[Rfam]
RNA sequence: UAGUGCUUACAGCUUUUUAAAAAUUUGUCUAGUAGGUCUUUCAGUUUUCACCGGAAGCCCCCC
Numbered sequence: 001u002a003g004u005g006c007u008u009a010c011a012g013c014u015u016u017u018u019a020a021a022a023a024u025u026u027g028u029c030u031a032g033u034a035g036g037u038c039u040u041u042c043a044g045u046u047u048u049c050a051c052c053g054g055a056a057g058c059c060c061c062c063c
Stems, first nucleotide, its partner, number of pairs: 035060002038057005044051002